Bacteroidete tryptophan peptide leader RNA: a 129-nucleotide RNA from Leptobacterium flavescens.
Gene Ontology terms of the family: regulation of gene expression and S-adenosylmethionine metabolic process.
The family's consensus secondary structure is taken from published work.

RNA sequence: UGGCUCAAUAAUUUUGAAAAAUGAAUCAAAUUUUAAACAAUAACUGGUGGUGGUGCUUACGAAAUUCCAAAGUCGUGAGUUAAAACACCUAUAGUAUAGUUUAAAAGUAAAACAUACAAAAGGCUUGUC
Numbered sequence: 001u002g003g004c005u006c007a008a009u010a011a012u013u014u015u016g017a018a019a020a021a022u023g024a025a026u027c028a029a030a031u032u033u034u035a036a037a038c039a040a041u042a043a044c045u046g047g048u049g050g051u052g053g054u055g056c057u058u059a060c061g062a063a064a065u066u067c068c069a070a071a072g073u074c075g076u077g078a079g080u081u082a083a084a085a086c087a088c089c090u091a092u093a094g095u096a097u098a099g100u101u102u103a104a105a106a107g108u109a110a111a112a113c114a115u116a117c118a119a120a121a122g123g124c125u126u127g128u129c
Stems, first nucleotide, its partner, number of pairs: 036101003040097003044094003049089004057083001059080002064073003